[Rfam]
RNA sequence: CGAAAACGUCACAACUGGCGUUCGGAUGGGCAUCCAUCAGGGAGUGACAUGCCUCCACGUUUCGGCCGUUCGCCUGGGCCGAACCG
Numbered sequence: 001c002g003a004a005a006a007c008g009u010c011a012c013a014a015c016u017g018g019c020g021u022u023c024g025g026a027u028g029g030g031c032a033u034c035c036a037u038c039a040g041g042g043a044g045u046g047a048c049a050u051g052c053c054u055c056c057a058c059g060u061u062u063c064g065g066c067c068g069u070u071c072g073c074c075u076g077g078g079c080c081g082a083a084c085c086g
Base pairs, nucleotide, nucleotide: 006050008048009047010046011045012044015041016040017074018073019072020071026037027036028035029034063081064080065079066078067077
Shown here is an 86-nucleotide RNA from Glaciihabitans sp. INWT7, a member of the family "ZMP/ZTP riboswitch aptamer (pfl RNA motif)". The source organism's lineage runs through Bacteria, Bacillati, Actinomycetota, Actinomycetes and Glaciihabitans.